This 169-nucleotide RNA from Oribacterium sinus belongs to the Rfam family "Clostridiales-1 RNA". The family's RNA type in Rfam is small RNA. The family has 194 seed sequences and 1,172 matches in Rfam 15.1.

RNA sequence: UAUUUACCGAGACAGAAAAGUCUAAGAUGCUCUGCAAGCUUGCUUGCAUGAACAUCGCAGACUUUUAUGAAUCGCCCCUGACAUGAGCACGGAAAGCCGAGUAUCGGCUUGGAAGUGCGAAUGUCAGGUAGGAAUCGUGAAAGCACGAAGUGCGACGAUUCCGUAAAUA
Numbered sequence: 001u002a003u004u005u006a007c008c009g010a011g012a013c014a015g016a017a018a019a020g021u022c023u024a025a026g027a028u029g030c031u032c033u034g035c036a037a038g039c040u041u042g043c044u045u046g047c048a049u050g051a052a053c054a055u056c057g058c059a060g061a062c063u064u065u066u067a068u069g070a071a072u073c074g075c076c077c078c079u080g081a082c083a084u085g086a087g088c089a090c091g092g093a094a095a096g097c098c099g100a101g102u103a104u105c106g107g108c109u110u111g112g113a114a115g116u117g118c119g120a121a122u123g124u125c126a127g128g129u130a131g132g133a134a135u136c137g138u139g140a141a142a143g144c145a146c147g148a149a150g151u152g153c154g155a156c157g158a159u160u161c162c163g164u165a166a167a168u169a
Stems, first nucleotide, its partner, number of pairs: 001169007013069002018064006026056004031051002034047005077128008087118004094110007132161007143153004